Notes:
A member of the RNA family "speF leader" from Hansschlegelia beijingensis, 157 nucleotides long. The match comes from Rfam's covariance-model search (48 bits). The organism belongs to Hansschlegelia, within Bacteria. Its family is annotated with regulation of gene expression in the Gene Ontology. From the family's description: This family is a putative regulatory RNA structure that is found upstream of the speF gene encoding ornithine decarboxylase in Agrobacterium tumefaciens and other alpha-proteobacteria. Pairs were carried over by alignment from the consensus structure, which was predicted with RNAalifold.

[Rfam]
RNA sequence: UCCCGGCUCUCCACAGGCCGGGGUCACUGAAGAGGCGACUACAUCCUUGCCGGGCGCGCGGGUCGCGGGUUCAUCCCAAGUCCCAAGCGUGGCGAAGACCUGAUCGGCCGGAUUCCAUCCGUCCCGAAGGUCGUCGCGACUACGGCGUGAUCGACGG
Numbered sequence: 001u002c003c004c005g006g007c008u009c010u011c012c013a014c015a016g017g018c019c020g021g022g023g024u025c026a027c028u029g030a031a032g033a034g035g036c037g038a039c040u041a042c043a044u045c046c047u048u049g050c051c052g053g054g055c056g057c058g059c060g061g062g063u064c065g066c067g068g069g070u071u072c073a074u075c076c077c078a079a080g081u082c083c084c085a086a087g088c089g090u091g092g093c094g095a096a097g098a099c100c101u102g103a104u105c106g107g108c109c110g111g112a113u114u115c116c117a118u119c120c121g122u123c124c125c126g127a128a129g130g131u132c133g134u135c136g137c138g139a140c141u142a143c144g145g146c147g148u149g150a151u152c153g154a155c156g157g
Base pairs, nucleotide, nucleotide: 001023002022003021004020005019006018007017008016034051035050036049037048058137059136060135086101087100109121110120111119112118113117